Overview: The family of this 88-nucleotide RNA sequence from Gossypium australe is "Small nucleolar RNA R44/J54/Z268 family". Lineage of the source: Eukaryota > Euphyllophyta > Gunneridae > Malvoideae > Gossypium. Clan: SNORD74 clan.
Nucleotides: 088
Base pairs, nucleotide, nucleotide: 002087003086004085005084006083
Number, partner (000 for none) and nucleotide at each position: 001000u002087g003086u004085g005084c006083a007000a008000g009000u010000g011000a012000c013000g014000a015000u016000a017000a018000a019000a020000a021000u022000a023000g024000a025000c026000a027000g028000g029000g030000a031000c032000a033000u034000c035000a036000g037000u038000a039000c040000c041000c042000a043000u044000u045000g046000g047000a048000g049000g050000a051000u052000g053000a054000u055000g056000a057000g058000u059000u060000g061000u062000c063000u064000a065000a066000a067000a068000u069000g070000g071000g072000a073000a074000u075000c076000u077000c078000u079000c080000u081000g082000a083006u084005g085004c086003a087002c088000g